[Rfam]
Background:
A member of the RNA family "Small nucleolar RNA SNORD14" from Hibiscus syriacus, 125 nucleotides long. Its family is annotated with RNA processing and nucleolus in the Gene Ontology. U14 small nucleolar RNA (U14 snoRNA) is required for early cleavages of eukaryotic precursor rRNAs. In yeasts, this molecule possess a stem-loop region (known as the Y-domain) which is essential for function. A similar structure, but with a different consensus sequence, is found in plants, but is absent in vertebrates. Lineage of the source: Eukaryota > Magnoliopsida > rosids > Malvaceae > Hibiscus. The literature on the family includes a 1996 paper in Nucleic Acids Res by Samarsky et al., "An essential domain in Saccharomyces cerevisiae U14 snoRNA is absent in vertebrates, but conserved in other yeasts".

RNA sequence: UGUUGAUGAUGAUAAAAGCAAAGGCUUGUUUCUCAAAAACAUUUGCAGUGGCUGCCUAAGAGCUUUCGCCUUUGCCGGGCUUGAGAGCUUGUGCUGCUUCAUUAGUUCCUUGGAUGUCUGAAACU
Numbered sequence: 001u002g003u004u005g006a007u008g009a010u011g012a013u014a015a016a017a018g019c020a021a022a023g024g025c026u027u028g029u030u031u032c033u034c035a036a037a038a039a040c041a042u043u044u045g046c047a048g049u050g051g052c053u054g055c056c057u058a059a060g061a062g063c064u065u066u067c068g069c070c071u072u073u074g075c076c077g078g079g080c081u082u083g084a085g086a087g088c089u090u091g092u093g094c095u096g097c098u099u100c101a102u103u104a105g106u107u108c109c110u111u112g113g114a115u116g117u118c119u120g121a122a123a124c125u
Base pairs, nucleotide, nucleotide: 002124003123004122062088063087064086065085066084067083
Dot-bracket structure: .(((.........................................................((((((...............)))))).................................))).